[Rfam]
RNA sequence: UAGCGAAAAAGGCAAACCUUGGGUGAUCAGGGGGCGCAAAGGAAAAGGGUCUUUACCCACCACGGGAAGCUAGGACAAUAAAGAUAGCCUUACUGCCAAA
Numbered sequence: 001u002a003g004c005g006a007a008a009a010a011g012g013c014a015a016a017c018c019u020u021g022g023g024u025g026a027u028c029a030g031g032g033g034g035c036g037c038a039a040a041g042g043a044a045a046a047g048g049g050u051c052u053u054u055a056c057c058c059a060c061c062a063c064g065g066g067a068a069g070c071u072a073g074g075a076c077a078a079u080a081a082a083g084a085u086a087g088c089c090u091u092a093c094u095g096c097c098a099a100a
Base pairs, nucleotide, nucleotide: 012037013036017032018031019030020029021028022027040094041093043091046090047089048088049085050084051083052082053081054080055079
Dot-bracket structure: ...........((...((((((....))))))...))..((.(..((((((((((.......................)))))))..)))).))......